[Rfam]
RNA sequence: GAAAAUAUGAAUGUCUACCUGCGUAUAAUUUAGGGAAUAUGGCCCAAAGUCUCUACCAGACCGCCGUAAAUGGUCUGACUACGCGGAUUAGUAUAAUAUGG
Numbered sequence: 001g002a003a004a005a006u007a008u009g010a011a012u013g014u015c016u017a018c019c020u021g022c023g024u025a026u027a028a029u030u031u032a033g034g035g036a037a038u039a040u041g042g043c044c045c046a047a048a049g050u051c052u053c054u055a056c057c058a059g060a061c062c063g064c065c066g067u068a069a070a071u072g073g074u075c076u077g078a079c080u081a082c083g084c085g086g087a088u089u090a091g092u093a094u095a096a097u098a099u100g101g
Stems, first nucleotide, its partner, number of pairs: 019086007029048003033045003057077007
Rfam assigns this 101-nucleotide RNA sequence from Ornithinibacillus bavariensis to the family "Purine riboswitch aptamer".
The base pairs follow the family's consensus structure, which is taken from published work.
The organism belongs to Ornithinibacillus, within Bacteria.
It scores 80 bits against the family's covariance model.